[Rfam]
RNA: Small nucleolar RNA SNORA25
RNA sequence: AGGUCAUUUCAAAGAGAGCUUAUGGAACGCAAACCAGGAGAUCUUAACGCAGUGACUAGGAUUGAGUUCUCCAUAGGAUGUAAUAGGCACUCAUAGUGCUGUGCCUUCCUGAGGAGAUGUAAGA
Numbered sequence: 001a002g003g004u005c006a007u008u009u010c011a012a013a014g015a016g017a018g019c020u021u022a023u024g025g026a027a028c029g030c031a032a033a034c035c036a037g038g039a040g041a042u043c044u045u046a047a048c049g050c051a052g053u054g055a056c057u058a059g060g061a062u063u064g065a066g067u068u069c070u071c072c073a074u075a076g077g078a079u080g081u082a083a084u085a086g087g088c089a090c091u092c093a094u095a096g097u098g099c100u101g102u103g104c105c106u107u108c109c110u111g112a113g114g115a116g117a118u119g120u121a122a123g124a
Base pairs, nucleotide, nucleotide: 002057003056004055005054006053007052014045015044016043017042019040020039021038023037024035025034068117069116070115071114072113075110076109077108078107083102084101085100086099088098089097090096091095